Rfam assigns this 92-nucleotide RNA from Neobacillus massiliamazoniensis to the family "pan motif". The base pairs follow the family's consensus structure, which is taken from published work. It is annotated as a cis-regulatory element.
RNA sequence: UGGGCAGUAUCCAUUUGGAACUGCACCUGGUUUUAAAACGUGAAAACUAAAUGGUUUCUGCCUAGAUCCGUGUAACGGACCGGGACAGAGGG
Numbered sequence: 001u002g003g004g005c006a007g008u009a010u011c012c013a014u015u016u017g018g019a020a021c022u023g024c025a026c027c028u029g030g031u032u033u034u035a036a037a038a039c040g041u042g043a044a045a046a047c048u049a050a051a052u053g054g055u056u057u058c059u060g061c062c063u064a065g066a067u068c069c070g071u072g073u074a075a076c077g078g079a080c081c082g083g084g085a086c087a088g089a090g091g092g
Stems, first nucleotide, its partner, number of pairs: 002027002004024005010019002058088003061084003065080001067079003